Rfam assigns this 252-nucleotide RNA sequence from Klebsiella sp. RIT-PI-d to the family "Erse small RNA". On this family, see Chen et al., FEBS Lett 2012: "Esre: a novel essential non-coding RNA in Escherichia coli". The family's consensus secondary structure was predicted with RNAfold. It scores 139 bits against the family's covariance model. Lineage of the source: Bacteria > Pseudomonadati > Gammaproteobacteria > Enterobacteriaceae > Klebsiella.
RNA sequence: CCGGCGGAAUUACUGGCUCCAUGGACCGGCGAUAUCGCGGCUGAAGGCAUAAGCCGGGUUUUACGGCGCGGAGCGACCUUUCUUAAUCACAGUGCGCGGCGUCAGCAGAGGUAUGUCGCUGAUGCGCUGACAGAAGAGUGGCGUCUGGCGCCCGGCGCGCUGGAAGUUGUAUGGUUUGCUGAAGAAGUCGCUGCCGUCGAACGUGCAGCAGAUAAUCUAACGACACGGCUGGAAAAACUGGAGGACAAAUGA
Numbered sequence: 001c002c003g004g005c006g007g008a009a010u011u012a013c014u015g016g017c018u019c020c021a022u023g024g025a026c027c028g029g030c031g032a033u034a035u036c037g038c039g040g041c042u043g044a045a046g047g048c049a050u051a052a053g054c055c056g057g058g059u060u061u062u063a064c065g066g067c068g069c070g071g072a073g074c075g076a077c078c079u080u081u082c083u084u085a086a087u088c089a090c091a092g093u094g095c096g097c098g099g100c101g102u103c104a105g106c107a108g109a110g111g112u113a114u115g116u117c118g119c120u121g122a123u124g125c126g127c128u129g130a131c132a133g134a135a136g137a138g139u140g141g142c143g144u145c146u147g148g149c150g151c152c153c154g155g156c157g158c159g160c161u162g163g164a165a166g167u168u169g170u171a172u173g174g175u176u177u178g179c180u181g182a183a184g185a186a187g188u189c190g191c192u193g194c195c196g197u198c199g200a201a202c203g204u205g206c207a208g209c210a211g212a213u214a215a216u217c218u219a220a221c222g223a224c225a226c227g228g229c230u231g232g233a234a235a236a237a238c239u240g241g242a243g244g245a246c247a248a249a250u251g252a
Stems, first nucleotide, its partner, number of pairs: 001244002005240001006082004013053002016050001019047002022044001027040001029038003062075001064073001084215001086213003090208001092206004099144006115128001117126003148179003152174003159167003187197002190194001216232002221228001